[Rfam]
RNA: Small Cajal body specific RNA 11
Nucleotides: 139
Base pairs, nucleotide, nucleotide: 002064003063004062005061006060007059010057011056024053028050029049030048031047032046033045077134078133079132080131081130084126085125086124087123090120091119093117094116095115096114100109101108102107
Number, partner (000 for none) and nucleotide at each position: 001000c002064u003063g004062u005061c006060c007059u008000g009000g010057c011056c012000u013000c014000u015000g016000c017000u018000u019000u020000c021000c022000c023000u024053a025000a026000c027000a028050c029049c030048c031047u032046a033045u034000g035000c036000u037000c038000a039000g040000u041000g042000c043000u044000a045033a046032u047031g048030g049029g050028g051000u052000c053024u054000c055000u056011g057010g058000a059007a060006g061005g062004a063003c064002g065000a066000a067000c068000a069000g070000c071000a072000g073000u074000c075000u076000c077134c078133c079132u080131c081130u082000c083000a084126g085125u086124u087123u088000a089000c090120a091119a092000a093117g094116g095115c096114c097000a098000a099000a100109c101108u102107a103000a104000g105000u106000a107102u108101a109100g110000g111000g112000c113000u114096g115095g116094c117093u118000g119091u120090u121000a122000a123087a124086g125085g126084c127000a128000c129000a130081a131080g132079a133078g134077g135000a136000u137000a138000a139000u